RNA sequence: UUAGAAAAAGGCAAACCUAUUGAAAAAUAGGGACGCAAAGUCACAGGUCUAAGGUUACGUAAUGAUGACGGCUGGGCUGCCUGAA
Numbered sequence: 001u002u003a004g005a006a007a008a009a010g011g012c013a014a015a016c017c018u019a020u021u022g023a024a025a026a027a028u029a030g031g032g033a034c035g036c037a038a039a040g041u042c043a044c045a046g047g048u049c050u051a052a053g054g055u056u057a058c059g060u061a062a063u064g065a066u067g068a069c070g071g072c073u074g075g076g077c078u079g080c081c082u083g084a085a
Base pairs, nucleotide, nucleotide: 001085003082004081011036012035016031017030018029019028020027021026034071039078040077041076042075044074045073046072047069048068049067
RNA: c-di-GMP-I-GGC riboswitch aptamer